[Rfam]
This 73-nucleotide RNA sequence from Orthoflavivirus aroaense belongs to the Rfam family "General Flavivirus exoribonuclease-resistant RNA element".
The source organism's lineage runs through Viruses, Orthornavirae, Euflavivirus, Orthoflavivirus aroaense and Aroa virus.
Rfam's curators put it in the seed alignment.
The exoribonuclease-resistant RNA elements (xrRNA) are described throughout all groups of flaviviruses. Usually, each virus harbors two xrRNAs, xrRNA1 and xrRNA2, in the beginning of the 3' UTR. The formation of these stem-loops, especially xrRNA1, is vital to ensure resistance against XRN1 activity. The Y-shaped stem-loop is also termed SL II and SL IV, respectively. In order to function as xrRNA, the sequence downstream is needed as well, since the upper loop region forms a pseudoknot (PK) with the single-stranded region directly downstream to its respective hairpin.
The base pairs follow the family's consensus structure, which was predicted with LocARNA.
For this family Rfam cites "Dengue virus RNA structure specialization facilitates host adaptation" (Villordo et al., PLoS Pathog, 2015).
RNA sequence: CACAGUCAGGCCGAAAGCCACCACAAGCGGUACAGUGGUGCUGCCUGCAUUAACCGCCCCAGGUGGACUGGGA
Numbered sequence: 001c002a003c004a005g006u007c008a009g010g011c012c013g014a015a016a017g018c019c020a021c022c023a024c025a026a027g028c029g030g031u032a033c034a035g036u037g038g039u040g041c042u043g044c045c046u047g048c049a050u051u052a053a054c055c056g057c058c059c060c061a062g063g064u065g066g067a068c069u070g071g072g073a
Base pairs, nucleotide, nucleotide: 005051007047008046009045010044011043012017021038022037023036058072059071060070061069062068